[Rfam]
RNA sequence: GCACACCGAACCGAUCCACGGCAGGAGCGGGGGACCCACAGGAAUCACCGCCUGUUCCGGUCUCCGGAACAAGCUAGGGGUCAAGCCGUGCGCGAGCACGGCCGGACAUCUCCAGUCCGCACCCGACAGCUCACCUCGCAGGCGCCGGAGAGGAAUU
Numbered sequence: 001g002c003a004c005a006c007c008g009a010a011c012c013g014a015u016c017c018a019c020g021g022c023a024g025g026a027g028c029g030g031g032g033g034a035c036c037c038a039c040a041g042g043a044a045u046c047a048c049c050g051c052c053u054g055u056u057c058c059g060g061u062c063u064c065c066g067g068a069a070c071a072a073g074c075u076a077g078g079g080g081u082c083a084a085g086c087c088g089u090g091c092g093c094g095a096g097c098a099c100g101g102c103c104g105g106a107c108a109u110c111u112c113c114a115g116u117c118c119g120c121a122c123c124c125g126a127c128a129g130c131u132c133a134c135c136u137c138g139c140a141g142g143c144g145c146c147g148g149a150g151a152g153g154a155a156u157u
Base pairs, nucleotide, nucleotide: 004144006142007141012025027139028138029137030136031135032134037077078124079123080122086101087100088099089098104118105117106116107115
Dot-bracket structure: ...(.((....(............).((((((....(.......................................)(((.....((((........))))..((((.......))))...))).........)))))).)).).............